Record summary: The family of this 54-nucleotide sequence is "UnaL2 LINE 3' element". It is annotated as a cis-regulatory element. Rfam's curators put it in the seed alignment.
RNA sequence: UCCACACUUGAAUGUAAGUCGCUUUGGAUAAAAGCAUCUGCUAAAUGGCUGUGU
Numbered sequence: 001u002c003c004a005c006a007c008u009u010g011a012a013u014g015u016a017a018g019u020c021g022c023u024u025u026g027g028a029u030a031a032a033a034g035c036a037u038c039u040g041c042u043a044a045a046u047g048g049c050u051g052u053g054u
Stems, first nucleotide, its partner, number of pairs: 013043001014041003021035005
Dot-bracket structure: ............((((....(((((.....)))))...))).)...........